This 166-nucleotide RNA from Paenalkalicoccus suaedae belongs to the Rfam family "c-di-AMP riboswitch aptamer (ydaO/yuaA leader)". Pairs were carried over by alignment from the consensus structure.
RNA sequence: AUUCGUAUAUCGCUUAAUUCAUAUGAAGCGGGGGACCCAAUAUAGUGGCUUGCAGUUUAACAAGCUUGCAAUCCUUGGGGUGAAUCAGCUAGGCAUUUGCCAGCUGUAGGGCGACUCUUGCGCCCGAAUCCGACAGCUAACCUCGUAAGCGUUGAAGGGACAAUUG
Numbered sequence: 001a002u003u004c005g006u007a008u009a010u011c012g013c014u015u016a017a018u019u020c021a022u023a024u025g026a027a028g029c030g031g032g033g034g035a036c037c038c039a040a041u042a043u044a045g046u047g048g049c050u051u052g053c054a055g056u057u058u059a060a061c062a063a064g065c066u067u068g069c070a071a072u073c074c075u076u077g078g079g080g081u082g083a084a085u086c087a088g089c090u091a092g093g094c095a096u097u098u099g100c101c102a103g104c105u106g107u108a109g110g111g112c113g114a115c116u117c118u119u120g121c122g123c124c125c126g127a128a129u130c131c132g133a134c135a136g137c138u139a140a141c142c143u144c145g146u147a148a149g150c151g152u153u154g155a156a157g158g159g160a161c162a163a164u165u166g
Stems, first nucleotide, its partner, number of pairs: 011151004018027003028146006038077002078131003086106004109125004